[Rfam]
The family of this 94-nucleotide RNA from Hibiscus trionum is "MIR535 microRNA precursor family".
Pairs were carried over by alignment from the consensus structure, which was predicted with RNAalifold.
RNA sequence: UUAUCAAUUUGACAACGAGAGAGAGCACGCUCGUAGCCAUUCAUAAAAGGUCAUGGAUGCAUACAAGCGUGCUCCCUAUCGUUGUCAUGUGAUU
Numbered sequence: 001u002u003a004u005c006a007a008u009u010u011g012a013c014a015a016c017g018a019g020a021g022a023g024a025g026c027a028c029g030c031u032c033g034u035a036g037c038c039a040u041u042c043a044u045a046a047a048a049g050g051u052c053a054u055g056g057a058u059g060c061a062u063a064c065a066a067g068c069g070u071g072c073u074c075c076c077u078a079u080c081g082u083u084g085u086c087a088u089g090u091g092a093u094u
Stems, first nucleotide, its partner, number of pairs: 010087005016081002020077002023074001025072007033064002